[Rfam]
Description
A member of the RNA family "U8 small nucleolar RNA" from Camarhynchus parvulus, 162 nucleotides long. The literature on the family includes a 1997 paper in Mol Cell Biol by Peculis, "The sequence of the 5' end of the U8 small nucleolar RNA is critical for 5.8S and 28S rRNA maturation". The family's consensus secondary structure is taken from published work. Rfam classes the family as a C/D-box small nucleolar RNA.
RNA sequence: UCGUCAGUGCGGUACAUCCUGACCUGCCCCGCGCAUGCGCGGGCAGCGCGUGAUGAGCGCGUGCGCGAUGACGCUUUCACGUGAUUACGUCACGCGUUAGUGGGCGGCACCUGCAGGGCUGACGCAACAACAGCCUGGCGCCGCCCUCUCGCCGACUCUGAU
Numbered sequence: 001u002c003g004u005c006a007g008u009g010c011g012g013u014a015c016a017u018c019c020u021g022a023c024c025u026g027c028c029c030c031g032c033g034c035a036u037g038c039g040c041g042g043g044c045a046g047c048g049c050g051u052g053a054u055g056a057g058c059g060c061g062u063g064c065g066c067g068a069u070g071a072c073g074c075u076u077u078c079a080c081g082u083g084a085u086u087a088c089g090u091c092a093c094g095c096g097u098u099a100g101u102g103g104g105c106g107g108c109a110c111c112u113g114c115a116g117g118g119c120u121g122a123c124g125c126a127a128c129a130a131c132a133g134c135c136u137g138g139c140g141c142c143g144c145c146c147u148c149u150c151g152c153c154g155a156c157u158c159u160g161a162u
Stems, first nucleotide, its partner, number of pairs: 024046003028043006073095002076092001077089001082087001102149003106145003
Dot-bracket structure: .......................(((.((((((....)))))))))..........................((.((....(....).)..).))......(((.(((..................................))).))).............